[Rfam]
Overview:
The family of this 494-nucleotide part of an RNA from Kocuria coralli is "Bacterial large subunit ribosomal RNA". The source organism's lineage runs through Bacteria, Bacillati, Actinomycetota, Micrococcales and Kocuria.

RNA sequence: GAAUGACGGGUGAGAAACCCGUCCGCCGGAUGAUCAAGGGUUCCAGGGUCAAGCUAAUCUGCCCUGGGUGAGUCGGGACCUAAGGCGAGGCCGACAGGCGUAGUCGAUGGAUAACGGGUUGAUAUUCCCGUACCGGCGAAGAACCGCCCAUACUGAGCUGGGGAUACUAACCACCGAGCCUGCCCGUUUCACCGUGUCAUCCCUUUCGGGGGGUGUGUGGUGUUGUGGUGGGUGGUGUGGGACCUGAUCCAGGGAGGUAAGCGUGUUAACAGGUGUGACGCAGGAAGGUAGCCGAGCCAGGCGAUGGUUGUCCUGGUCUAAGCGUGUAGGACUCAGGGUUGUUAAAUGCGCUCUGUGUGUGUCUGAGACGUGAUGGGACCCCUUUGGUGGGGGAUUCGGUGAUCCUAUGCUGCCGAGAAAAGCAUCGACGUGAGGUUCUAGCCGCCCGUACCCUAAACCGACACAGGUGAUCAGGUAGAGAAUACUAAGGCGUU
Numbered sequence: 001g002a003a004u005g006a007c008g009g010g011u012g013a014g015a016a017a018c019c020c021g022u023c024c025g026c027c028g029g030a031u032g033a034u035c036a037a038g039g040g041u042u043c044c045a046g047g048g049u050c051a052a053g054c055u056a057a058u059c060u061g062c063c064c065u066g067g068g069u070g071a072g073u074c075g076g077g078a079c080c081u082a083a084g085g086c087g088a089g090g091c092c093g094a095c096a097g098g099c100g101u102a103g104u105c106g107a108u109g110g111a112u113a114a115c116g117g118g119u120u121g122a123u124a125u126u127c128c129c130g131u132a133c134c135g136g137c138g139a140a141g142a143a144c145c146g147c148c149c150a151u152a153c154u155g156a157g158c159u160g161g162g163g164a165u166a167c168u169a170a171c172c173a174c175c176g177a178g179c180c181u182g183c184c185c186g187u188u189u190c191a192c193c194g195u196g197u198c199a200u201c202c203c204u205u206u207c208g209g210g211g212g213g214u215g216u217g218u219g220g221u222g223u224u225g226u227g228g229u230g231g232g233u234g235g236u237g238u239g240g241g242a243c244c245u246g247a248u249c250c251a252g253g254g255a256g257g258u259a260a261g262c263g264u265g266u267u268a269a270c271a272g273g274u275g276u277g278a279c280g281c282a283g284g285a286a287g288g289u290a291g292c293c294g295a296g297c298c299a300g301g302c303g304a305u306g307g308u309u310g311u312c313c314u315g316g317u318c319u320a321a322g323c324g325u326g327u328a329g330g331a332c333u334c335a336g337g338g339u340u341g342u343u344a345a346a347u348g349c350g351c352u353c354u355g356u357g358u359g360u361g362u363c364u365g366a367g368a369c370g371u372g373a374u375g376g377g378a379c380c381c382c383u384u385u386g387g388u389g390g391g392g393g394a395u396u397c398g399g400u401g402a403u404c405c406u407a408u409g410c411u412g413c414c415g416a417g418a419a420a421a422g423c424a425u426c427g428a429c430g431u432g433a434g435g436u437u438c439u440a441g442c443c444g445c446c447c448g449u450a451c452c453c454u455a456a457a458c459c460g461a462c463a464c465a466g467g468u469g470a471u472c473a474g475g476u477a478g479a480g481a482a483u484a485c486u487a488a489g490g491c492g493u494u
Base pairs, nucleotide, nucleotide: 005023006022007021008020009019010018024492025491026490027489032472033471034470035469038452039451043067044066045065046064047063048062052060053059074448075447076446077445079110080109084105085104086103088101090099091098092097115246116245117244118243119242120241250444252442255439256438257437259436269431272426273425274424275423276422280413281412282411283410286406287405288404291400292399293398294397295396296317297316298315299314300313301312318376319375322371323370324369325368329364330363331362334355335354336353337352338351339350341349342348379392380391381390382389458467459466474486475485476484477483